[Rfam]
RNA: Fluoride riboswitch aptamer (crcB RNA motif)
Organism: [Clostridium] symbiosum
RNA sequence: AAUACAGUCGGGAAUGAAGUUCUCCCCCAGUAUUGUUUAUACUGAAACCGCUUAUUUGAGCUGAUGACUUCUGCGGAUAC
Numbered sequence: 001a002a003u004a005c006a007g008u009c010g011g012g013a014a015u016g017a018a019g020u021u022c023u024c025c026c027c028c029a030g031u032a033u034u035g036u037u038u039a040u041a042c043u044g045a046a047a048c049c050g051c052u053u054a055u056u057u058g059a060g061c062u063g064a065u066g067a068c069u070u071c072u073g074c075g076g077a078u079a080c
Base pairs, nucleotide, nucleotide: 010026011025012024013023016071017070018069019068020067021066050061051060052059053058